[Rfam]
RNA: Y RNA
RNA sequence: GGCUGGUCCAAUGGUAGUGGGUUAUCAGAAUUUACUAAUAUUAGUGUAACAAAAAUUGGUGUACAACCCCCACCGCUGAAUUUGACUGGCUUAAA
Numbered sequence: 001g002g003c004u005g006g007u008c009c010a011a012u013g014g015u016a017g018u019g020g021g022u023u024a025u026c027a028g029a030a031u032u033u034a035c036u037a038a039u040a041u042u043a044g045u046g047u048a049a050c051a052a053a054a055a056u057u058g059g060u061g062u063a064c065a066a067c068c069c070c071c072a073c074c075g076c077u078g079a080a081u082u083u084g085a086c087u088g089g090c091u092u093a094a095a
Stems, first nucleotide, its partner, number of pairs: 001091008010083002015078001017073005033061003037057002